[Rfam]
RNA sequence: GGGCGAUGAUUAUAAAGAGAGAGGAUUGAGUGGGGAGUAUGAACAAAACUCUCAUGGGAUUGGAGAAAAAAUAAACCCUAAUCGAAAUUGAUGGAGAAAAUUAGUUUUUAAUUUUUUUUCCCUUUUUCGAUUGUUAGGUUUAUUUCUUUCUCUAUCUCUUACCCUCGAUGACGGUCCUUCCAAUGUACACUUGAUAUGAGCCCU
Numbered sequence: 001g002g003g004c005g006a007u008g009a010u011u012a013u014a015a016a017g018a019g020a021g022a023g024g025a026u027u028g029a030g031u032g033g034g035g036a037g038u039a040u041g042a043a044c045a046a047a048a049c050u051c052u053c054a055u056g057g058g059a060u061u062g063g064a065g066a067a068a069a070a071a072u073a074a075a076c077c078c079u080a081a082u083c084g085a086a087a088u089u090g091a092u093g094g095a096g097a098a099a100a101u102u103a104g105u106u107u108u109u110a111a112u113u114u115u116u117u118u119u120c121c122c123u124u125u126u127u128c129g130a131u132u133g134u135u136a137g138g139u140u141u142a143u144u145u146c147u148u149u150c151u152c153u154a155u156c157u158c159u160u161a162c163c164c165u166c167g168a169u170g171a172c173g174g175u176c177c178u179u180c181c182a183a184u185g186u187a188c189a190c191u192u193g194a195u196a197u198g199a200g201c202c203c204u
Base pairs, nucleotide, nucleotide: 001203002202003201004200009195010194011193012192021166022165023164024163027054028053029052030051032049038045056159057158058157062155063148064147065146066145067144068143074141075140077138078137079133080132081131082130083129084128085127086126087125093121094120095119096118097117098116099115101111102110103109104108169187170186173181174180
The family of this 204-nucleotide RNA from Raphanus sativus is "Small nucleolar RNA snoR125". The family's RNA type in Rfam is C/D-box small nucleolar RNA. The literature on the family includes a 2009 paper in Nucleic Acids Res by Chen and Wu, "Mining small RNA sequencing data: a new approach to identify small nucleolar RNAs in Arabidopsis". Its family is annotated with RNA processing and nucleolus in the Gene Ontology. The match comes from Rfam's covariance-model search (167 bits).